[Rfam]
RNA sequence: GACCGCGAUGGGGAUGGGGCUCCCCCGAUAACCGCCUGAGAAGGCUGAUGGCUCCUGCCAGGAC
Numbered sequence: 001g002a003c004c005g006c007g008a009u010g011g012g013g014a015u016g017g018g019g020c021u022c023c024c025c026c027g028a029u030a031a032c033c034g035c036c037u038g039a040g041a042a043g044g045c046u047g048a049u050g051g052c053u054c055c056u057g058c059c060a061g062g063a064c
Base pairs, nucleotide, nucleotide: 010026011025012024013023016055017054018053019052020051021050034045035044036043037042